Rfam assigns this 169-nucleotide RNA sequence from Leuconostocaceae bacterium R-53105 to the family "Lysine riboswitch aptamer".
From the family's description: Riboswitches are metabolite binding domains within certain messenger RNAs that serve as precision sensors for their corresponding targets. Allosteric rearrangement of mRNA structure is mediated by ligand binding, and this results in modulation of gene expression. This family includes riboswitches that sense lysine in a number of genes involved in lysine metabolism, including lysC.
The match comes from Rfam's covariance-model search (90 bits).

RNA sequence: GAUAUACAGAGAGGUCGCGACCAACAUCAGUAAUUAAGCAGAGCCAACCACGGCUUAGAAGCUUAAUGAAAGGGGCGGUUGCCGAAGGUAGCUCACUUGGUAGGUAGUUACUUGGGCUGAUGAUUAAGAGUCAUCAGACUGUCGUGAUUUGCGAUGCGCUUUGGCACUU
Numbered sequence: 001g002a003u004a005u006a007c008a009g010a011g012a013g014g015u016c017g018c019g020a021c022c023a024a025c026a027u028c029a030g031u032a033a034u035u036a037a038g039c040a041g042a043g044c045c046a047a048c049c050a051c052g053g054c055u056u057a058g059a060a061g062c063u064u065a066a067u068g069a070a071a072g073g074g075g076c077g078g079u080u081g082c083c084g085a086a087g088g089u090a091g092c093u094c095a096c097u098u099g100g101u102a103g104g105u106a107g108u109u110a111c112u113u114g115g116g117c118u119g120a121u122g123a124u125u126a127a128g129a130g131u132c133a134u135c136a137g138a139c140u141g142u143c144g145u146g147a148u149u150u151g152c153g154a155u156g157c158g159c160u161u162u163g164g165c166a167c168u169u
Stems, first nucleotide, its partner, number of pairs: 007163005017082006025074001033067007086113008096103002114140002117137008142154005